Rfam assigns this 91-nucleotide sequence from Pteropus alecto to the family "Small nucleolar RNA SNORD111". Lineage of the source: Eukaryota > Opisthokonta > Yinpterochiroptera > Pteropodinae > Pteropus. The base pairs follow the family's consensus structure, which was predicted with RNAalifold. On this family, see Huttenhofer et al., EMBO J 2001: "RNomics: an experimental approach that identifies 201 candidates for novel, small, non-messenger RNAs in mouse". The match comes from Rfam's covariance-model search (71 bits).
[Rfam]
RNA sequence: GAGCCUGAAGUGAUGAUUCUUUAAAGAAUACGUCUCUUUUCUGACGUUUUUCUCUGGAGAUAGUUCUUGCCUUACCGACCUCAUUAGGCUU
Dot-bracket structure: (((((.................................................................................)))))